Shown here is a 117-nucleotide RNA from Frankineae bacterium MT45, a member of the family "mraW RNA".

[Rfam]
RNA sequence: UUCGAGGCGUUUGCUCAGGCCUCCUCCCGUCCCCGACGACUUUGGCUCUGACACCACUUCCCCGGUGCCAGAGCAGCCACGGGACGGGUGGGGACCUGAGCACACGACACCGGCCGG
Number, nucleotide and partner (000 for none) at each position: 001u000002u000003c000004g000005a000006g000007g000008c000009g000010u104011u000012u102013g101014c100015u099016c098017a000018g096019g095020c000021c093022u092023c091024c090025u000026c088027c087028c086029g085030u084031c083032c082033c081034c000035g000036a000037c000038g000039a000040c000041u000042u000043u076044g000045g074046c073047u072048c071049u070050g069051a000052c067053a066054c065055c000056a000057c000058u000059u000060c000061c000062c000063c000064g000065g054066u053067g052068c000069c050070a049071g048072a047073g046074c045075a000076g043077c000078c000079a000080c000081g033082g032083g031084a030085c029086g028087g027088g026089u000090g024091g023092g022093g021094a000095c019096c018097u000098g016099a015100g014101c013102a012103c000104a010105c000106g000107a000108c000109a000110c000111c000112g000113g000114c000115c000116g000117g000